[Rfam]
RNA sequence: GCCGGGAUGGUGGAAUGGCAGACACGGAGCACUCAAAAUGCUUUGACCGAAAGGUCGUGCGGGUUCAAGUCCCGCUCCCGGCA
Numbered sequence: 001g002c003c004g005g006g007a008u009g010g011u012g013g014a015a016u017g018g019c020a021g022a023c024a025c026g027g028a029g030c031a032c033u034c035a036a037a038a039u040g041c042u043u044u045g046a047c048c049g050a051a052a053g054g055u056c057g058u059g060c061g062g063g064u065u066c067a068a069g070u071c072c073c074g075c076u077c078c079c080g081g082c083a
Base pairs, nucleotide, nucleotide: 001082002081003080004079005078006077007076010025011024012023027043028042029041030040031039059075060074061073062072063071
tRNA: an 83-nucleotide RNA sequence from Austwickia chelonae. The family's consensus secondary structure is taken from published work. About the family: Transfer RNA (tRNA) molecules are approximately 80 nucleotides in length.